The family of this 95-nucleotide RNA from Chlamydomonas reinhardtii is "Small nucleolar RNA Z43".
[Rfam]
RNA sequence: UGGCUAUGAUGGUUAUGUCUCGUUCGGUGUAUUGGCGAUAAUCCAACAAAGCCAUGCCGACAAACUCUACAUAUCACCACUCACAAUCUGAGCCA
Numbered sequence: 001u002g003g004c005u006a007u008g009a010u011g012g013u014u015a016u017g018u019c020u021c022g023u024u025c026g027g028u029g030u031a032u033u034g035g036c037g038a039u040a041a042u043c044c045a046a047c048a049a050a051g052c053c054a055u056g057c058c059g060a061c062a063a064a065c066u067c068u069a070c071a072u073a074u075c076a077c078c079a080c081u082c083a084c085a086a087u088c089u090g091a092g093c094c095a
Stems, first nucleotide, its partner, number of pairs: 001095004040055001042050001

Pairs were carried over by alignment from the consensus structure, which was predicted with PFOLD. Rfam links the family to the GO terms RNA processing and nucleolus. A reference for the family is Chen et al. (2003), "The high diversity of snoRNAs in plants: identification and comparative study of 120 snoRNA genes from Oryza sativa", Nucleic Acids Res.